[Rfam]
This 75-nucleotide RNA sequence from Mus musculus belongs to the Rfam family "mir-363 microRNA precursor family". The sequence is in the family's curated seed alignment. For this family Rfam cites "Small RNA expression and strain specificity in the rat" (Linsen et al., BMC Genomics, 2010). The family's consensus secondary structure was predicted with RNAalifold. Rfam 15.1 lists 620 matches to the family in 594 species.
RNA sequence: UGUUAUCAGGUGGAACACGAUGCAAUUUUGGUUGGUGUAAUAGGAGGAAAAUUGCACGGUAUCCAUCUGUAAACC
Numbered sequence: 001u002g003u004u005a006u007c008a009g010g011u012g013g014a015a016c017a018c019g020a021u022g023c024a025a026u027u028u029u030g031g032u033u034g035g036u037g038u039a040a041u042a043g044g045a046g047g048a049a050a051a052u053u054g055c056a057c058g059g060u061a062u063c064c065a066u067c068u069g070u071a072a073a074c075c
Stems, first nucleotide, its partner, number of pairs: 007069008017060002021056009